Shown here is a 66-nucleotide RNA sequence from Ureibacillus yapensis, a member of the family "Bacillaceae-1 RNA". The organism belongs to Ureibacillus, within Bacteria. Rfam classes the family as a small RNA. It scores 41 bits against the family's covariance model.

[Rfam]
RNA sequence: AUUUAAUGAACUUAGACUAAAAACGCUACGUCCUGUGUAACGUUUAAGUGACCACCCUCUUGCUCC
Dot-bracket structure: ..........(((((((.......((.((.....))))...))))))).....(.(.....).)..